The record is a 121-nucleotide RNA sequence from Streptomyces sp. AJS327, which matches "Streptomyces-metH RNA" in Rfam.
The family's consensus secondary structure is taken from published work.

[Rfam]
RNA sequence: GCGGGCGGCCCCCGGUGCUCCCCGACGGCCCACUUGUGCUCGCCGAUACCCUGAUCUGGUGCGCCGUCUUCAUGGACCGCGCAAAGCCGACAGCCGUCGCAUCCCAGGGAGCACAUCCAUG
Numbered sequence: 001g002c003g004g005g006c007g008g009c010c011c012c013c014g015g016u017g018c019u020c021c022c023c024g025a026c027g028g029c030c031c032a033c034u035u036g037u038g039c040u041c042g043c044c045g046a047u048a049c050c051c052u053g054a055u056c057u058g059g060u061g062c063g064c065c066g067u068c069u070u071c072a073u074g075g076a077c078c079g080c081g082c083a084a085a086g087c088c089g090a091c092a093g094c095c096g097u098c099g100c101a102u103c104c105c106a107g108g109g110a111g112c113a114c115a116u117c118c119a120u121g
Base pairs, nucleotide, nucleotide: 060083061082062081063080066077067076068075086100087099089098090097091096